[Rfam]
RNA sequence: GCUGCGGAGUGUUAUAUAAACGGUGGUAGCUUUGGCAAAACCGGACACGAUGAAACAGUAA
Dot-bracket structure: ((((....(((((.......(((.....((....))....)))))))).......))))..